[Rfam]
RNA sequence: CGAACCUCUCAGGGCGGGGUGCAAUUCCCCACCGGCGGUGUUUCGGAGAUCUCAUGUGAGGCCUUUCCGAUCAGCCCGCGAGCGCCACGCGCGUCGGUUCACGACACGCUGGGACAGCAGAUCCGGUGCGAUCCCGGAGCCGACGGUCACAGUCCGGAUGAAAGAGAGAUGAC
Numbered sequence: 001c002g003a004a005c006c007u008c009u010c011a012g013g014g015c016g017g018g019g020u021g022c023a024a025u026u027c028c029c030c031a032c033c034g035g036c037g038g039u040g041u042u043u044c045g046g047a048g049a050u051c052u053c054a055u056g057u058g059a060g061g062c063c064u065u066u067c068c069g070a071u072c073a074g075c076c077c078g079c080g081a082g083c084g085c086c087a088c089g090c091g092c093g094u095c096g097g098u099u100c101a102c103g104a105c106a107c108g109c110u111g112g113g114a115c116a117g118c119a120g121a122u123c124c125g126g127u128g129c130g131a132u133c134c135c136g137g138a139g140c141c142g143a144c145g146g147u148c149a150c151a152g153u154c155c156g157g158a159u160g161a162a163a164g165a166g167a168g169a170u171g172a173c
Base pairs, nucleotide, nucleotide: 004170006168007167008166009165010164017029018028019027031153032152033142034141035079036078037077038076074140075139082118083117122138123137124136125135126134144156145155146154
FMN riboswitch aptamer (RFN element): a 173-nucleotide sequence from Celeribacter ethanolicus. Lineage of the source: Bacteria > Alphaproteobacteria > Rhodobacterales > Roseobacteraceae > Celeribacter. The base pairs follow the family's consensus structure, which is taken from published work.